The record is a 171-nucleotide RNA sequence from Capsella rubella, which matches "U12 minor spliceosomal RNA" in Rfam. A reference for the family is Tarn and Steitz (1997), "Pre-mRNA splicing: the discovery of a new spliceosome doubles the challenge", Trends Biochem Sci.
RNA sequence: UUGCCUUAAACUAAUGAGUAAGGAAAACAAAGCGAACGGUGAGAGCCGGUCGCAGCGCUUAAAACCGUGCAAACGUUUAAAAUGGCGCAAGAAUUUAUGGAAGGGUAAUAGGCUGGUACGAGUUGAUGACGCUGCUUACUUUUGCAGAACUCUCUUGUGCGGGCCUCCCCA
Numbered sequence: 001u002u003g004c005c006u007u008a009a010a011c012u013a014a015u016g017a018g019u020a021a022g023g024a025a026a027a028c029a030a031a032g033c034g035a036a037c038g039g040u041g042a043g044a045g046c047c048g049g050u051c052g053c054a055g056c057g058c059u060u061a062a063a064a065c066c067g068u069g070c071a072a073a074c075g076u077u078u079a080a081a082a083u084g085g086c087g088c089a090a091g092a093a094u095u096u097a098u099g100g101a102a103g104g105g106u107a108a109u110a111g112g113c114u115g116g117u118a119c120g121a122g123u124u125g126a127u128g129a130c131g132c133u134g135c136u137u138a139c140u141u142u143u144g145c146a147g148a149a150c151u152c153u154c155u156u157g158u159g160c161g162g163g164c165c166u167c168c169c170c171a
Stems, first nucleotide, its partner, number of pairs: 004023005032053004037048003055088005103170003110166005116160001117157002120154003132147004
It scores 86 bits against the family's covariance model. By type it is a spliceosomal small nuclear RNA.